[Rfam]
RNA sequence: GAAUGUUGCAAGAUUCCCGAUAGGAUUUAUUGGCAAUGCCUUUAAAAAUGCCUUGUAACCGAAAAUUAAGAGGGGGAAUAGAGAAGUG
Numbered sequence: 001g002a003a004u005g006u007u008g009c010a011a012g013a014u015u016c017c018c019g020a021u022a023g024g025a026u027u028u029a030u031u032g033g034c035a036a037u038g039c040c041u042u043u044a045a046a047a048a049u050g051c052c053u054u055g056u057a058a059c060c061g062a063a064a065a066u067u068a069a070g071a072g073g074g075g076g077a078a079u080a081g082a083g084a085a086g087u088g
Stems, first nucleotide, its partner, number of pairs: 014078005022053003026046004059073002
RNA: SAM-III riboswitch aptamer (SMK box)
Organism: Vagococcus allomyrinae